The record is a 98-nucleotide RNA sequence from Periweissella cryptocerci, which matches "Bacterial small signal recognition particle RNA" in Rfam. The family is grouped with related families in Rfam's "SRP clan". The organism belongs to Periweissella, within Bacteria. The base pairs follow the family's consensus structure, which is taken from published work. The family's RNA type in Rfam is non-coding RNA gene.

RNA sequence: UACUAACUGCGGGGCAAGGUUAUACUCCGAAUUGGGUCAGGACCGGAAGGUAGCAGCCCUAAGGAUGCUGUAAUUUGUGCUUCGUAUACAUACAUUUA
Numbered sequence: 001u002a003c004u005a006a007c008u009g010c011g012g013g014g015c016a017a018g019g020u021u022a023u024a025c026u027c028c029g030a031a032u033u034g035g036g037u038c039a040g041g042a043c044c045g046g047a048a049g050g051u052a053g054c055a056g057c058c059c060u061a062a063g064g065a066u067g068c069u070g071u072a073a074u075u076u077g078u079g080c081u082u083c084g085u086a087u088a089c090a091u092a093c094a095u096u097u098a
Stems, first nucleotide, its partner, number of pairs: 004092002008088001009085006015077001017076006026065003034059004042051003